[Rfam]
Shown here is a 52-nucleotide sequence from Sideroxydans sp. CL21, a member of the family "chrB-b RNA". It scores 45 bits against the family's covariance model. The base pairs follow the family's consensus structure, which is taken from published work.
RNA sequence: CGGGGAUAAAGCAGCCUCCCCGCUUCAAGACAUCCCAUCGUCCAAGGCCUGC
Numbered sequence: 001c002g003g004g005g006a007u008a009a010a011g012c013a014g015c016c017u018c019c020c021c022g023c024u025u026c027a028a029g030a031c032a033u034c035c036c037a038u039c040g041u042c043c044a045a046g047g048c049c050u051g052c
Stems, first nucleotide, its partner, number of pairs: 001022006011052004029042003
Dot-bracket structure: ((((((....[[[[..))))))......(((........)))......]]]]